The record is an 88-nucleotide RNA sequence from Vagococcus lutrae, which matches "BsrC" in Rfam. The 301 nucleotide sequence from Kouji Nakamura has been trimmed to a highly conserved ~85 nucleotide long core to form this family.
[Rfam]
RNA sequence: UCUCGUUUAAACAAUGUCAUCCCUAACCUCUAUGACAUCCUUGUAGCUCUUUAACUACGCCAGUGCGAAUAAAUUUCUUCAAAACAAA
Numbered sequence: 001u002c003u004c005g006u007u008u009a010a011a012c013a014a015u016g017u018c019a020u021c022c023c024u025a026a027c028c029u030c031u032a033u034g035a036c037a038u039c040c041u042u043g044u045a046g047c048u049c050u051u052u053a054a055c056u057a058c059g060c061c062a063g064u065g066c067g068a069a070u071a072a073a074u075u076u077c078u079u080c081a082a083a084a085c086a087a088a
Stems, first nucleotide, its partner, number of pairs: 036067001040063002042059005048053001